[Rfam]
RNA sequence: GUUCAUCUUCGGGGCAGGGUGUAAUUCCCGACCGGUGGUAAUAGUCCACGAUCCGCAUUUUUUGCGGGUGACUCUGGUGUGAUUCCAGGACCGACAGUAUAGUCUGGAUGGGAGAAGAUGUAG
Numbered sequence: 001g002u003u004c005a006u007c008u009u010c011g012g013g014g015c016a017g018g019g020u021g022u023a024a025u026u027c028c029c030g031a032c033c034g035g036u037g038g039u040a041a042u043a044g045u046c047c048a049c050g051a052u053c054c055g056c057a058u059u060u061u062u063u064g065c066g067g068g069u070g071a072c073u074c075u076g077g078u079g080u081g082a083u084u085c086c087a088g089g090a091c092c093g094a095c096a097g098u099a100u101a102g103u104c105u106g107g108a109u110g111g112g113a114g115a116a117g118a119u120g121u122a123g
Base pairs, nucleotide, nucleotide: 004120005119006118007117008116009115010114017029018028019027031103032102033093034092035049036048037047038046044091045090052068053067054066073089074088075087076086077085095106096105097104